[Rfam]
RNA sequence: GUGAUUAGCUUCUAGGGUUCCGAUCUGACCGUAUGCAGUUCAGAUGUCUGGUCCGAGAGAAGCAACCAACUUUCGACAAUCUUGGCAAUGAGAAACCCAAAGAUUGCGGAAGAGGGUCACACGGCGGGAGAAAAGCCCGGGAGAG
Numbered sequence: 001g002u003g004a005u006u007a008g009c010u011u012c013u014a015g016g017g018u019u020c021c022g023a024u025c026u027g028a029c030c031g032u033a034u035g036c037a038g039u040u041c042a043g044a045u046g047u048c049u050g051g052u053c054c055g056a057g058a059g060a061a062g063c064a065a066c067c068a069a070c071u072u073u074c075g076a077c078a079a080u081c082u083u084g085g086c087a088a089u090g091a092g093a094a095a096c097c098c099a100a101a102g103a104u105u106g107c108g109g110a111a112g113a114g115g116g117u118c119a120c121a122c123g124g125c126g127g128g129a130g131a132a133a134a135g136c137c138c139g140g141g142a143g144a145g
Stems, first nucleotide, its partner, number of pairs: 008063005015054002020051002022048001023045006065117003070112006120140001122143001126138003
Dot-bracket structure: .......(((((..((...(((((((((...........))))))..).)).))....))))).(((..((((((...............................))))))..)))..(.[...(((.......))).)..]..

Guanidine-I riboswitch aptamer: a 145-nucleotide sequence from Leptolyngbya sp. FACHB-261. This family represents a conserved RNA structure found upstream of the ykkC and yxkD genes in Bacillus subtilis and related genes in other bacteria. The function of this family is unclear although it has been suggested that it may function to switch on efflux pumps and detoxification systems in response to harmful environmental molecules.